A member of the RNA family "Glycine riboswitch aptamer" from Gluconobacter sp. DsW_058, 77 nucleotides long. The family is grouped with related families in Rfam's "Glycine riboswitch clan". About the family: This family represents the bacterial glycine riboswitch. Glycine riboswitches usually consist of two metabolite-binding aptamers domains with similar structures in tandem. The base pairs follow the family's consensus structure. Lineage of the source: Bacteria > Pseudomonadati > Alphaproteobacteria > Acetobacteraceae > Gluconobacter. Its family is annotated with glycine biosynthetic process in the Gene Ontology.

[Rfam]
RNA sequence: UAAAUUCUGGAGAGAGGUGCGCCUGACGUACCCGCCGACGGGAUAGCGAUCUCAGGCAAAAGGACAGAAGGGGCGGC
Numbered sequence: 001u002a003a004a005u006u007c008u009g010g011a012g013a014g015a016g017g018u019g020c021g022c023c024u025g026a027c028g029u030a031c032c033c034g035c036c037g038a039c040g041g042g043a044u045a046g047c048g049a050u051c052u053c054a055g056g057c058a059a060a061a062g063g064a065c066a067g068a069a070g071g072g073g074c075g076g077c
Stems, first nucleotide, its partner, number of pairs: 005069005016032004034057003037053002041051002